[Rfam]
Rfam assigns this 115-nucleotide RNA sequence from Juglans regia to the family "mir-395 microRNA precursor family".
From the family's description: mir-395 was identified in both Arabidopsis thaliana and Oryza sativa computationally and was later experimentally verified. mir-395 is thought to target mRNAs coding for ATP sulphurylases. The mature sequence is excised from the 3' arm of the hairpin.
It scores 62 bits against the family's covariance model.

RNA sequence: AUGUCCCCGAGAGUUCCCUUGACCACUUCAUUGGGGACGUCGGACGUCUGUCUUCGAAUGAAAUGGUCAUCCAGCUGCUCUCUACUGAAGUGUUUGGGGGAACUCCUGAUGGCAU
Numbered sequence: 001a002u003g004u005c006c007c008c009g010a011g012a013g014u015u016c017c018c019u020u021g022a023c024c025a026c027u028u029c030a031u032u033g034g035g036g037a038c039g040u041c042g043g044a045c046g047u048c049u050g051u052c053u054u055c056g057a058a059u060g061a062a063a064u065g066g067u068c069a070u071c072c073a074g075c076u077g078c079u080c081u082c083u084a085c086u087g088a089a090g091u092g093u094u095u096g097g098g099g100g101a102a103c104u105c106c107u108g109a110u111g112g113c114a115u
Stems, first nucleotide, its partner, number of pairs: 005111001008108002011105010022095001024092007032084006